This 85-nucleotide RNA sequence from Natranaerobius trueperi belongs to the Rfam family "c-di-GMP-I-GGC riboswitch aptamer". It scores 71 bits against the family's covariance model.
[Rfam]
RNA sequence: AUUGAAAAAGGCAAACCUAUCGAAAGAUAGGGACGCAAAGCCAUAGGACCUUUCUUUCAAAAGAAUGGUAGCCUGGCCGCCAAUU
Numbered sequence: 001a002u003u004g005a006a007a008a009a010g011g012c013a014a015a016c017c018u019a020u021c022g023a024a025a026g027a028u029a030g031g032g033a034c035g036c037a038a039a040g041c042c043a044u045a046g047g048a049c050c051u052u053u054c055u056u057u058c059a060a061a062a063g064a065a066u067g068g069u070a071g072c073c074u075g076g077c078c079g080c081c082a083a084u085u
Stems, first nucleotide, its partner, number of pairs: 001085001003082002011036002016031006034071001040077003045074003048069003